Small nucleolar RNA SNORD79: an 83-nucleotide RNA from Myotis brandtii. A reference for the family is Galardi et al. (2002), "Purified box C/D snoRNPs are able to reproduce site-specific 2'-O-methylation of target RNA in vitro", Mol Cell Biol. Taxonomically the source falls in Myotis (Eukaryota, Metazoa, Gnathostomata, Chiroptera). Clan: SNORD74 clan.
[Rfam]
RNA sequence: UGCUGUUAGUGAUGAUUAAAAAAAACACAGAUGGGAAUCUCUCUGAAAAAGAAUGAAGAUUUUAUUUUAUAACUGAAACAGUA
Numbered sequence: 001u002g003c004u005g006u007u008a009g010u011g012a013u014g015a016u017u018a019a020a021a022a023a024a025a026c027a028c029a030g031a032u033g034g035g036a037a038u039c040u041c042u043c044u045g046a047a048a049a050a051g052a053a054u055g056a057a058g059a060u061u062u063u064a065u066u067u068u069a070u071a072a073c074u075g076a077a078a079c080a081g082u083a
Base pairs, nucleotide, nucleotide: 001083002082003081004080005079006078007077

snoRNA U79 or Z22 is found in intron 7 of the gas5 gene in humans and is also present in mice. The family's consensus secondary structure was predicted with PFOLD.